[Rfam]
RNA sequence: UAUCUUGUUGAUUCUGCAUGAUUGGUACGUUCAUCUCAAAGAUUAAGCCAUGCAUGUCUAAGUAUAACGAUUCAAAGUGAAACCGCGAACGGCUCAUUAUAACAGCAAUAAUUGACUUGACGAUAUUUUCCUAAAUGGAUACCUGAGGUAAUUCUUGAGCUAAUACAUGAACUUAAGCAGAGUGCCUCGCGUGCUCUGUCCAUUUAUUAGACCAAAACCAGGCGGCUUCGGUCGUUUUUUGGUGACUCUGAAUAACUUCGUCAAUCGCAUGAUCUCGCAUCGGCGAUACGUCAAUCAAGUUUCUGCCCUAUCAACUUUUGAUGGUUCUGUAUUGGAGAACCAUGGUGAUAACGGGUAACGGAGAAUUAGGGUUUGACUCCGGAGAGGGAGCCUGAGAAACGGCUACCACAUCCAAGGAAGGCAGCAGGCGCGAAAAUUACCCACUCUCAGUGCGAGGAGGUAGUGACGAAAAAUAACAAGGCGGAUCACUUUGUGAGCCGCUAUUGGAAUGGGUACAAUUUAAACCCUUUAACGAGGACCUAUGAGAGGGCAAGUCUGGUGCCAGCAGCCGCGGUAAUUCCAGCUCUCAAAAUGUACUUA
Numbered sequence: 001u002a003u004c005u006u007g008u009u010g011a012u013u014c015u016g017c018a019u020g021a022u023u024g025g026u027a028c029g030u031u032c033a034u035c036u037c038a039a040a041g042a043u044u045a046a047g048c049c050a051u052g053c054a055u056g057u058c059u060a061a062g063u064a065u066a067a068c069g070a071u072u073c074a075a076a077g078u079g080a081a082a083c084c085g086c087g088a089a090c091g092g093c094u095c096a097u098u099a100u101a102a103c104a105g106c107a108a109u110a111a112u113u114g115a116c117u118u119g120a121c122g123a124u125a126u127u128u129u130c131c132u133a134a135a136u137g138g139a140u141a142c143c144u145g146a147g148g149u150a151a152u153u154c155u156u157g158a159g160c161u162a163a164u165a166c167a168u169g170a171a172c173u174u175a176a177g178c179a180g181a182g183u184g185c186c187u188c189g190c191g192u193g194c195u196c197u198g199u200c201c202a203u204u205u206a207u208u209a210g211a212c213c214a215a216a217a218c219c220a221g222g223c224g225g226c227u228u229c230g231g232u233c234g235u236u237u238u239u240u241g242g243u244g245a246c247u248c249u250g251a252a253u254a255a256c257u258u259c260g261u262c263a264a265u266c267g268c269a270u271g272a273u274c275u276c277g278c279a280u281c282g283g284c285g286a287u288a289c290g291u292c293a294a295u296c297a298a299g300u301u302u303c304u305g306c307c308c309u310a311u312c313a314a315c316u317u318u319u320g321a322u323g324g325u326u327c328u329g330u331a332u333u334g335g336a337g338a339a340c341c342a343u344g345g346u347g348a349u350a351a352c353g354g355g356u357a358a359c360g361g362a363g364a365a366u367u368a369g370g371g372u373u374u375g376a377c378u379c380c381g382g383a384g385a386g387g388g389a390g391c392c393u394g395a396g397a398a399a400c401g402g403c404u405a406c407c408a409c410a411u412c413c414a415a416g417g418a419a420g421g422c423a424g425c426a427g428g429c430g431c432g433a434a435a436a437u438u439a440c441c442c443a444c445u446c447u448c449a450g451u452g453c454g455a456g457g458a459g460g461u462a463g464u465g466a467c468g469a470a471a472a473a474u475a476a477c478a479a480g481g482c483g484g485a486u487c488a489c490u491u492u493g494u495g496a497g498c499c500g501c502u503a504u505u506g507g508a509a510u511g512g513g514u515a516c517a518a519u520u521u522a523a524a525c526c527c528u529u530u531a532a533c534g535a536g537g538a539c540c541u542a543u544g545a546g547a548g549g550g551c552a553a554g555u556c557u558g559g560u561g562c563c564a565g566c567a568g569c570c571g572c573g574g575u576a577a578u579u580c581c582a583g584c585u586c587u588c589a590a591a592a593u594g595u596a597c598u599u600a
Stems, first nucleotide, its partner, number of pairs: 004020001006018003022600001024598008034471001036469002040464001041431001047429003051426003056086002062083002067078002093384003103305003108300002112298002118293004135168003143159002146156003177199005184192002204255005217243004224233003265286004270282004307355003314346003321343008359381004363374004386407002389404003409420001411418002437462001439461003445457004477506003480502005486496004513533002515530001517529002543589006556583004565572002
RNA: Eukaryotic small subunit ribosomal RNA, nucleotides 1 to 600